[Rfam]
RNA sequence: AUGUUUCGUGAAUUCACAUGCAUUAUAUUGUGGUAUGAACUGAGUACAUGAUGAUUUAUGAUGCUUAUUGGGGGCUUACCAUAAGACAAUGUCGUGAAUUCGCAAAACUU
Numbered sequence: 001a002u003g004u005u006u007c008g009u010g011a012a013u014u015c016a017c018a019u020g021c022a023u024u025a026u027a028u029u030g031u032g033g034u035a036u037g038a039a040c041u042g043a044g045u046a047c048a049u050g051a052u053g054a055u056u057u058a059u060g061a062u063g064c065u066u067a068u069u070g071g072g073g074g075c076u077u078a079c080c081a082u083a084a085g086a087c088a089a090u091g092u093c094g095u096g097a098a099u100u101c102g103c104a105a106a107a108c109u110u
Stems, first nucleotide, its partner, number of pairs: 003108004008103009020092002024088001026086001028084008037075001040072002043069004049063002
RNA: MIR1428 microRNA precursor family